[Rfam]
RNA sequence: GGAGACGUUUCGUCACCGGUGUGGCGCCCAGUCUUCAAAACUGGUGGCAGGCUGAGAGGUCUGCGGUAGGUUCGACCCCUAUGCGUCUCC
Numbered sequence: 001g002g003a004g005a006c007g008u009u010u011c012g013u014c015a016c017c018g019g020u021g022u023g024g025c026g027c028c029c030a031g032u033c034u035u036c037a038a039a040a041c042u043g044g045u046g047g048c049a050g051g052c053u054g055a056g057a058g059g060u061c062u063g064c065g066g067u068a069g070g071u072u073c074g075a076c077c078c079c080u081a082u083g084c085g086u087c088u089c090c
Stems, first nucleotide, its partner, number of pairs: 001090008011026006028044005047064005067081004
The family of this 90-nucleotide sequence from Desulfovibrio sp. An276 is "Selenocysteine transfer RNA".